Rfam assigns this 72-nucleotide RNA sequence from Daphnia galeata to the family "mir-33 microRNA precursor family". The base pairs follow the family's consensus structure, which was predicted with PFOLD. Its family is annotated with RISC complex and gene silencing by miRNA in the Gene Ontology. It scores 62 bits against the family's covariance model.
[Rfam]
RNA sequence: CCGUGUGCAUUGUAGUUGCAUUGCACGUUGUAAAUGAUUUGUUUCGCGCAAUGCUUCGGCAGUGCAACGCGG
Numbered sequence: 001c002c003g004u005g006u007g008c009a010u011u012g013u014a015g016u017u018g019c020a021u022u023g024c025a026c027g028u029u030g031u032a033a034a035u036g037a038u039u040u041g042u043u044u045c046g047c048g049c050a051a052u053g054c055u056u057c058g059g060c061a062g063u064g065c066a067a068c069g070c071g072g
Stems, first nucleotide, its partner, number of pairs: 001072005006066008015057001018054001020052005026046001